Nucleotides: 090
Base pairs, nucleotide, nucleotide: 001090002089003088004087005086006085007084008083009082010081017074018073019072020071021070022069023068029063030062031061032060033059034058036057038055039054042053043052
Number, partner (000 for none) and nucleotide at each position: 001090u002089g003088a004087u005086g006085u007084u008083g009082c010081u011000g012000u013000a014000g015000a016000a017074u018073g019072a020071c021070a022069c023068g024000u025000u026000u027000u028000c029063u030062c031061c032060c033059g034058g035000a036057u037000u038055g039054c040000c041000a042053g043052a044000a045000a046000a047000a048000c049000u050000u051000u052043u053042c054039g055038c056000c057036a058034c059033c060032g061031g062030g063029a064000a065000u066000u067000u068023c069022g070021u071020g072019u073018c074017a075000g076000c077000c078000a079000a080000a081010a082009g083008u084007g085006a086005c087004a088003u089002c090001a
mir-731 microRNA precursor family: a 90-nucleotide sequence from Electrophorus electricus. Its family is annotated with miRNA-mediated post-transcriptional gene silencing and RISC complex in the Gene Ontology. The base pairs follow the family's consensus structure, which was predicted with RNAalifold.